[Rfam]
RNA sequence: UACCUAACUCUGCCGCUUGCCCGGGGUCCCUUUUGCACUACGACGGCAGGGGCGGGGGAACCAAUUUUUUGGGUCCUUUGAAUCCUUGGGGUUAAGCCGACCGGAUGAGACCGGCGGCCGGGUGACUCCCAUCCGAACCCGACAGCUCACCUCGCAGGUAUAGGGAGAGGUAAU
Numbered sequence: 001u002a003c004c005u006a007a008c009u010c011u012g013c014c015g016c017u018u019g020c021c022c023g024g025g026g027u028c029c030c031u032u033u034u035g036c037a038c039u040a041c042g043a044c045g046g047c048a049g050g051g052g053c054g055g056g057g058g059a060a061c062c063a064a065u066u067u068u069u070u071g072g073g074u075c076c077u078u079u080g081a082a083u084c085c086u087u088g089g090g091g092u093u094a095a096g097c098c099g100a101c102c103g104g105a106u107g108a109g110a111c112c113g114g115c116g117g118c119c120g121g122g123u124g125a126c127u128c129c130c131a132u133c134c135g136a137a138c139c140c141g142a143c144a145g146c147u148c149a150c151c152u153c154g155c156a157g158g159u160a161u162a163g164g165g166a167g168a169g170g171u172a173a174u
Base pairs, nucleotide, nucleotide: 001160002159003158004157008051009050010049011048012047013046014045015044052155053154054153055152056151057150062088063087089140090139091138097117098116099115120134121133122132123131
RNA: c-di-AMP riboswitch aptamer (ydaO/yuaA leader)
Organism: Arthrobacter sp. Edens01